[Rfam]
RNA sequence: CAACUAGAUUGAAUAGCUACGGUUAGAAGCGAAAGCGACUAUCCGAGGAAAGUCCGAGCUCCAUAGAGCAAUAAUAACGGCUAACAGCCGCCGGGGGUGACCCUAGGGAUAGUGCAACAGAAAAUUACCGCCACUUAUGUGGUAAGGAUGGAAAGGCGAGGUAAGAGCUCACCGGUAAUAUGGAGACAUAUUAGCCGUGUAAACCCUAUUUGGAGCAACACCGUGGAGGGACAUAAUGCUUGCUCGGCAGUCCCGGGGAGGUGGCGUUGAGCAGUUGUGGUAACACACUGCCAAGAUAGAUGGCUAUUCACGACAGAACUCGGCUUAUAGAUUUGGUUGCUAA
Numbered sequence: 001c002a003a004c005u006a007g008a009u010u011g012a013a014u015a016g017c018u019a020c021g022g023u024u025a026g027a028a029g030c031g032a033a034a035g036c037g038a039c040u041a042u043c044c045g046a047g048g049a050a051a052g053u054c055c056g057a058g059c060u061c062c063a064u065a066g067a068g069c070a071a072u073a074a075u076a077a078c079g080g081c082u083a084a085c086a087g088c089c090g091c092c093g094g095g096g097g098u099g100a101c102c103c104u105a106g107g108g109a110u111a112g113u114g115c116a117a118c119a120g121a122a123a124a125u126u127a128c129c130g131c132c133a134c135u136u137a138u139g140u141g142g143u144a145a146g147g148a149u150g151g152a153a154a155g156g157c158g159a160g161g162u163a164a165g166a167g168c169u170c171a172c173c174g175g176u177a178a179u180a181u182g183g184a185g186a187c188a189u190a191u192u193a194g195c196c197g198u199g200u201a202a203a204c205c206c207u208a209u210u211u212g213g214a215g216c217a218a219c220a221c222c223g224u225g226g227a228g229g230g231a232c233a234u235a236a237u238g239c240u241u242g243c244u245c246g247g248c249a250g251u252c253c254c255g256g257g258g259a260g261g262u263g264g265c266g267u268u269g270a271g272c273a274g275u276u277g278u279g280g281u282a283a284c285a286c287a288c289u290g291c292c293a294a295g296a297u298a299g300a301u302g303g304c305u306a307u308u309c310a311c312g313a314c315a316g317a318a319c320u321c322g323g324c325u326u327a328u329a330g331a332u333u334u335g336g337u338u339g340c341u342a343a
Stems, first nucleotide, its partner, number of pairs: 001339010011328001012308007020045003024041003050326003054323005059215004066245004073210004078090004092106001093104004107206002112204002114200003128147002130143005155173002158170003175195001176193007219263004229253003237249004271291004276287004
Rfam assigns this 343-nucleotide RNA sequence from Ruminococcus bovis to the family "Bacterial RNase P class A". The family's RNA type in Rfam is ribozyme. Taxonomically the source falls in Ruminococcus (Bacteria, Bacillati, Bacillota, Oscillospiraceae). The base pairs follow the family's consensus structure, which is taken from published work. It scores 253 bits against the family's covariance model.